A member of the RNA family "tRNA" from Crossiella cryophila, 81 nucleotides long. NCBI's taxonomy places the organism under Bacteria, Actinomycetota, Pseudonocardiales, Pseudonocardiaceae, Crossiella. It scores 59 bits against the family's covariance model.

[Rfam]
RNA sequence: GGCAGGUUGCCCGAGUGGCCAAAGGGAACGGACUGUAAAUCCGUCGCGAAAGCUUCGAAGGUUCGAAUCCUUCACCUGCCA
Numbered sequence: 001g002g003c004a005g006g007u008u009g010c011c012c013g014a015g016u017g018g019c020c021a022a023a024g025g026g027a028a029c030g031g032a033c034u035g036u037a038a039a040u041c042c043g044u045c046g047c048g049a050a051a052g053c054u055u056c057g058a059a060g061g062u063u064c065g066a067a068u069c070c071u072u073c074a075c076c077u078g079c080c081a
Stems, first nucleotide, its partner, number of pairs: 001080007010026003028044005057073005

By type it is a transfer RNA.